[Rfam]
RNA sequence: AAGGGAUUCUGGCUUGAAGGAACUUCUGGUGUGAUAUGUCGAUUUUGUAUCAUAUCACAGCCAGUAGUUACCUACGAAAUGGAAUCCCGU
Numbered sequence: 001a002a003g004g005g006a007u008u009c010u011g012g013c014u015u016g017a018a019g020g021a022a023c024u025u026c027u028g029g030u031g032u033g034a035u036a037u038g039u040c041g042a043u044u045u046u047g048u049a050u051c052a053u054a055u056c057a058c059a060g061c062c063a064g065u066a067g068u069u070a071c072c073u074a075c076g077a078a079a080u081g082g083a084a085u086c087c088c089g090u
Stems, first nucleotide, its partner, number of pairs: 003088009018073003021069004026064002028061001030059009

Rfam assigns this 90-nucleotide RNA sequence from Ceutorhynchus assimilis to the family "mir-2944 microRNA precursor family".
The base pairs follow the family's consensus structure, which was predicted with RNAalifold.